[Rfam]
RNA sequence: CUCUCCGAAAUGCAUUUAGGUGCAGCGUCGCGUCAUUGCCUGCAGGGGGUAGAGCUACCGGAUGCUUGCGGGCCCGUACCGGGUACCAAUAGCAGCCGAACUCCGAAUACCUGUCAGGUGUAUCGCGGCAGUGAGUCGGCGGGGGAUAAGCUCCGUCGUCGAAAGGGAAACAGCCCAGACCGUCGUCUAAGGUCCCGAAGCGUGUGCUAAGUGGGAAAGGAUGUGGAGUCGCAUAGACAGCCAGGAGGUUGGCUUAGAAGCAGCCAUCCUUGAAAGAGUGCGUAACAGCUCACUGGUCUAGUGGUUCCGCGCCGACAAUGUAGCGGGGCUCAAGCACACCACCGAAGACGCGGCGGCAGCGUUUGUUGCUGGGUAGGAGAGCGUUCCGCAUGGGUCGAAGCGGCGGCGUGAGCCGGCCGUGGACUUUGCGGAAGUGAGAAU
Numbered sequence: 001c002u003c004u005c006c007g008a009a010a011u012g013c014a015u016u017u018a019g020g021u022g023c024a025g026c027g028u029c030g031c032g033u034c035a036u037u038g039c040c041u042g043c044a045g046g047g048g049g050u051a052g053a054g055c056u057a058c059c060g061g062a063u064g065c066u067u068g069c070g071g072g073c074c075c076g077u078a079c080c081g082g083g084u085a086c087c088a089a090u091a092g093c094a095g096c097c098g099a100a101c102u103c104c105g106a107a108u109a110c111c112u113g114u115c116a117g118g119u120g121u122a123u124c125g126c127g128g129c130a131g132u133g134a135g136u137c138g139g140c141g142g143g144g145g146a147u148a149a150g151c152u153c154c155g156u157c158g159u160c161g162a163a164a165g166g167g168a169a170a171c172a173g174c175c176c177a178g179a180c181c182g183u184c185g186u187c188u189a190a191g192g193u194c195c196c197g198a199a200g201c202g203u204g205u206g207c208u209a210a211g212u213g214g215g216a217a218a219g220g221a222u223g224u225g226g227a228g229u230c231g232c233a234u235a236g237a238c239a240g241c242c243a244g245g246a247g248g249u250u251g252g253c254u255u256a257g258a259a260g261c262a263g264c265c266a267u268c269c270u271u272g273a274a275a276g277a278g279u280g281c282g283u284a285a286c287a288g289c290u291c292a293c294u295g296g297u298c299u300a301g302u303g304g305u306u307c308c309g310c311g312c313c314g315a316c317a318a319u320g321u322a323g324c325g326g327g328g329c330u331c332a333a334g335c336a337c338a339c340c341a342c343c344g345a346a347g348a349c350g351c352g353g354c355g356g357c358a359g360c361g362u363u364u365g366u367u368g369c370u371g372g373g374u375a376g377g378a379g380a381g382c383g384u385u386c387c388g389c390a391u392g393g394g395u396c397g398a399a400g401c402g403g404c405g406g407c408g409u410g411a412g413c414c415g416g417c418c419g420u421g422g423a424c425u426u427u428g429c430g431g432a433a434g435u436g437a438g439a440a441u
Stems, first nucleotide, its partner, number of pairs: 001381006011024005026131001027129006037122001038119005043113004052104001053102002059098003063094004070087002072084005135160001137158008165176003180353004185349003191343003200340001202339006219313002223310010240297005246270003251265003271275001276291001280289002354371007382436001384433007392425002400420005405414003
Dot-bracket structure: ((((((....(((((....))))).(((((((....((((((((((.....(((....(((.((((...(((((((...))))).))...)))).)))..)).).....)))).)))))..).)))))).)...(.((((((((......)))))))).)....(((......)))...((((.(((...(((......(.((((((...........((..((((((((((.......(((((.(((..(((.........)))..)))(...)(...((......)).).)))))...)))))))))).))....................))))))))))...)))))))(((((((....)))))))....))))))(.(((((((.((......((((((((....))).)))))...)).)))))))..).....